Shown here is a 214-nucleotide RNA from Chara braunii, a member of the family "Plant small nucleolar RNA U3". Lineage of the source: Eukaryota > Viridiplantae > Charales > Characeae > Chara. On this family, see Marz and Stadler, RNA Biol 2010: "Comparative analysis of eukaryotic U3 snoRNA".
[Rfam]
RNA sequence: ACUACUGUACUUGAACAGGAUCUGUUCUGUAGGUCGUACACUUUCCUAUAUCUACGAAUACAGGUGACUCACUCAACCUGGAUGAUGAGCGGAGACCUUCAUUCCUGAGCGCGAAUACUAGGCGCGGGGCCUGUUUCGGCAGUUUCCAGCCGUUGAUGAACGCACCCCUUGGCUUUGGUCAAGGGGUUCCGGAAUGGGGGCGUUCUGACGGGUC
Numbered sequence: 001a002c003u004a005c006u007g008u009a010c011u012u013g014a015a016c017a018g019g020a021u022c023u024g025u026u027c028u029g030u031a032g033g034u035c036g037u038a039c040a041c042u043u044u045c046c047u048a049u050a051u052c053u054a055c056g057a058a059u060a061c062a063g064g065u066g067a068c069u070c071a072c073u074c075a076a077c078c079u080g081g082a083u084g085a086u087g088a089g090c091g092g093a094g095a096c097c098u099u100c101a102u103u104c105c106u107g108a109g110c111g112c113g114a115a116u117a118c119u120a121g122g123c124g125c126g127g128g129g130c131c132u133g134u135u136u137c138g139g140c141a142g143u144u145u146c147c148a149g150c151c152g153u154u155g156a157u158g159a160a161c162g163c164a165c166c167c168c169u170u171g172g173c174u175u176u177g178g179u180c181a182a183g184g185g186g187u188u189c190c191g192g193a194a195u196g197g198g199g200g201c202g203u204u205c206u207g208a209c210g211g212g213u214c
Stems, first nucleotide, its partner, number of pairs: 001037002005033002013027006042067002045064001047062001049060003076213005096200010109163003119152001121151003126147004131142004165186009

Record summary
Rfam links the family to the GO terms RNA processing and nucleolus. A search with the family's covariance model found it, with a score of 105 bits. The family's consensus secondary structure is taken from published work. The family is grouped with related families in Rfam's "U3 clan".